[Rfam]
RNA sequence: UGGGUGGGCAUAUUACAGCGCUUUGUUGAGAAAGCGCUGUAAUAUGCCCACCCAUAUAUGAAAUUAUGGUUGGACAUUUUACAGCGCUUUUUUGAAAAAGCGCUGUAAAAUGCAGACCAUAAUAUGA
Numbered sequence: 001u002g003g004g005u006g007g008g009c010a011u012a013u014u015a016c017a018g019c020g021c022u023u024u025g026u027u028g029a030g031a032a033a034g035c036g037c038u039g040u041a042a043u044a045u046g047c048c049c050a051c052c053c054a055u056a057u058a059u060g061a062a063a064u065u066a067u068g069g070u071u072g073g074a075c076a077u078u079u080u081a082c083a084g085c086g087c088u089u090u091u092u093u094g095a096a097a098a099a100g101c102g103c104u105g106u107a108a109a110a111u112g113c114a115g116a117c118c119a120u121a122a123u124a125u126g127a
Stems, first nucleotide, its partner, number of pairs: 003052006016039009065121007073113001075112001081106011
Dot-bracket structure: ..((((((.......(((((((((......))))))))).......))))))............(((((((.(.(.....(((((((((((....))))))))))).....)).)))))))......
Background:
A member of the RNA family "Small nucleolar RNA SNORA69" from Cicer arietinum, 127 nucleotides long. Rfam's curators write: U69 is a member of the H/ACA class of small nucleolar RNAs (snoRNAs) which act as guides in the the modification of uridines to pseudouridines. The organism belongs to Cicer, within Eukaryota. Its family is annotated with nucleolus and RNA processing in the Gene Ontology.